[Rfam]
RNA sequence: UGGGAGGGUGAUACUCGGGUAGCAGCGAGUCGUGCUCUGCCUGUCACUAACCUUCCCUAGAAUAACACUGCCUUCUGAUGACCGGGGUGACCUGAGGGAAAUCACAACGGACAGAUACGGGGCAGACAAUA
Numbered sequence: 001u002g003g004g005a006g007g008g009u010g011a012u013a014c015u016c017g018g019g020u021a022g023c024a025g026c027g028a029g030u031c032g033u034g035c036u037c038u039g040c041c042u043g044u045c046a047c048u049a050a051c052c053u054u055c056c057c058u059a060g061a062a063u064a065a066c067a068c069u070g071c072c073u074u075c076u077g078a079u080g081a082c083c084g085g086g087g088u089g090a091c092c093u094g095a096g097g098g099a100a101a102u103c104a105c106a107a108c109g110g111a112c113a114g115a116u117a118c119g120g121g122g123c124a125g126a127c128a129a130u131a
Stems, first nucleotide, its partner, number of pairs: 002057006016043003022037001024036003068125007082110003087105004

Shown here is a 131-nucleotide sequence from Atractosteus spatula, a member of the family "Small Cajal body specific RNA 8". NCBI's taxonomy places the organism under Eukaryota, Euteleostomi, Actinopterygii, Neopterygii, Atractosteus. Rfam describes the family as follows. scaRNAs are a specific class of small nuclear RNAs which localise to the Cajal bodies and guide the modification of RNA polymerase II transcribed spliceosomal RNAs U1, U2, U4, U5 and U12. U92 belong to the H/ACA box class of guide RNAs as it has the predicted hairpin-hinge-hairpin-tail structure, conserved H/ACA-box motifs and is found associated with GAR1. Its family is annotated with Cajal body, RNA processing and nucleolus in the Gene Ontology.